[Rfam]
RNA sequence: UUAUCUCCUUUAGUUAUUUGUUUAGUCACUUUUAAUUAUAGAGAUAAUUGCGCUUUUUU
Number, nucleotide and partner (000 for none) at each position: 001u047002u046003a045004u044005c043006u042007c041008c000009u000010u000011u038012a037013g036014u035015u034016a033017u000018u000019u000020g029021u028022u000023u000024a000025g000026u000027c000028a021029c020030u000031u000032u000033u016034a015035a014036u013037u012038a011039u000040a000041g007042a006043g005044a004045u003046a002047a001048u000049u000050g000051c000052g000053c000054u000055u000056u000057u000058u000059u000
The record is a 59-nucleotide RNA sequence from Staphylococcus aureus, which matches "Staphylococcus sRNA sau-5949" in Rfam. On this family, see Abu-Qatouseh et al., J Mol Med (Berl) 2010: "Identification of differentially expressed small non-protein-coding RNAs in Staphylococcus aureus displaying both the normal and the small-colony variant phenotype". The family's RNA type in Rfam is small RNA.